[Rfam]
Nucleotides: 085
Stems, first nucleotide, its partner, number of pairs: 014051007024042007060084004066075003
Number, partner (000 for none) and nucleotide at each position: 001000u002000g003000a004000u005000a006000g007000c008000g009000u010000u011000g012000a013000a014051a015050c016049g017048g018047a019046g020045g021000u022000u023000g024042c025041u026040g027039u028038a029037u030036c031000g032000u033000a034000u035000a036030g037029a038028u039027a040026u041025a042024g043000g044000u045020u046019u047018u048017u049016c050015g051014u052000g053000g054000a055000g056000c057000g058000a059000a060084u061083g062082u063081c064000a065000a066075u067074a068073a069000a070000a071000a072000a073068u074067u075066a076000c077000u078000g079000a080000c081063g082062a083061c084060a085000a